[Rfam]
RNA sequence: UUCUCUGGAAAGCCUAUGGCACCGAAGGGGCAAUUCUUUAAAAAGAAGAAUCUCUCAGGUUUAGAACAGAGUA
Numbered sequence: 001u002u003c004u005c006u007g008g009a010a011a012g013c014c015u016a017u018g019g020c021a022c023c024g025a026a027g028g029g030g031c032a033a034u035u036c037u038u039u040a041a042a043a044a045g046a047a048g049a050a051u052c053u054c055u056c057a058g059g060u061u062u063a064g065a066a067c068a069g070a071g072u073a
Base pairs, nucleotide, nucleotide: 001073003071004070005069006068007067014019021060022059023058024056025055028054029053030052034047035046
Dot-bracket structure: (.(((((......(....).(((((..(((...((..........))....))))).)))......))))).)